[Rfam]
RNA sequence: UAGAGUCACCAACUGUUCAUGUUUGCCUGGGACUGAGGAAUUUCCCAGGAUGCAGGACUUUCAGUCUUAGGCAAACCUGGGUGGUUGGUAACUCAGAUUCCAA
Numbered sequence: 001u002a003g004a005g006u007c008a009c010c011a012a013c014u015g016u017u018c019a020u021g022u023u024u025g026c027c028u029g030g031g032a033c034u035g036a037g038g039a040a041u042u043u044c045c046c047a048g049g050a051u052g053c054a055g056g057a058c059u060u061u062c063a064g065u066c067u068u069a070g071g072c073a074a075a076c077c078u079g080g081g082u083g084g085u086u087g088g089u090a091a092c093u094c095a096g097a098u099u100c101c102a103a
Base pairs, nucleotide, nucleotide: 001096003094004093005092006091008089009088010087011086012085013084014083015082019078021076022075023074024073025072026071027070028069029068030067031066032065033064034063035062036061038053040051041050042049